[Rfam]
RNA: Transposase-1 RNA
RNA sequence: UCAGAGUUAGACAAUGCGAUUACUCCUAGCUUGGAAUAUCGGAAUACUAAUGAAGA
Numbered sequence: 001u002c003a004g005a006g007u008u009a010g011a012c013a014a015u016g017c018g019a020u021u022a023c024u025c026c027u028a029g030c031u032u033g034g035a036a037u038a039u040c041g042g043a044a045u046a047c048u049a050a051u052g053a054a055g056a
Stems, first nucleotide, its partner, number of pairs: 006051005017041004024035003